[Rfam]
RNA sequence: AAUAAGAUUCACCCGUUCUCUCGUAUAUCCUCGGGGAUUGGCCCGAGAGUUUCUACCCGGACGCCGGAAGGUCUGGACUACGAGGGAGGCUUGAAUAUGC
Dot-bracket structure: .................((((((((....((((((......)))))).........((((((........))))))..))))))))..............
Purine riboswitch aptamer: a 100-nucleotide sequence from Alicyclobacillus sp. SO9. Pairs were carried over by alignment from the consensus structure, which is taken from published work. It scores 68 bits against the family's covariance model. The literature on the family includes a 2003 paper in Cell by Mandal et al., "Riboswitches Control Fundamental Biochemical Pathways in Bacillus subtilis and Other Bacteria".